[Rfam]
RNA: Flavo-1 RNA
Organism: Chryseobacterium sp. RU37D
RNA sequence: CCAUAGCCCCGAUUGUAACGGCAUCCUUUUGUGUAGUGAAGCGAAACAAAAGAUAUAGUGAAAAGCGGGAAAUUGC
Numbered sequence: 001c002c003a004u005a006g007c008c009c010c011g012a013u014u015g016u017a018a019c020g021g022c023a024u025c026c027u028u029u030u031g032u033g034u035a036g037u038g039a040a041g042c043g044a045a046a047c048a049a050a051a052g053a054u055a056u057a058g059u060g061a062a063a064a065g066c067g068g069g070a071a072a073u074u075g076c
Stems, first nucleotide, its partner, number of pairs: 009068003013064002018059002023054003029049004034044001036042001